[Rfam]
RNA sequence: AGCAAAACUAUGUACCUCGCACAUCAUGUAGAUGGGUUCCAAAAAGUAACAACCCAG
Numbered sequence: 001a002g003c004a005a006a007a008c009u010a011u012g013u014a015c016c017u018c019g020c021a022c023a024u025c026a027u028g029u030a031g032a033u034g035g036g037u038u039c040c041a042a043a044a045a046g047u048a049a050c051a052a053c054c055c056a057g
Base pairs, nucleotide, nucleotide: 019037020036022034023033024032025031
Rfam assigns this 57-nucleotide RNA from Ziziphus jujuba to the family "Plastid-ndhJ 3UTR RNA". The organism belongs to Ziziphus jujuba, within Eukaryota. Rfam classes the family as a cis-regulatory element.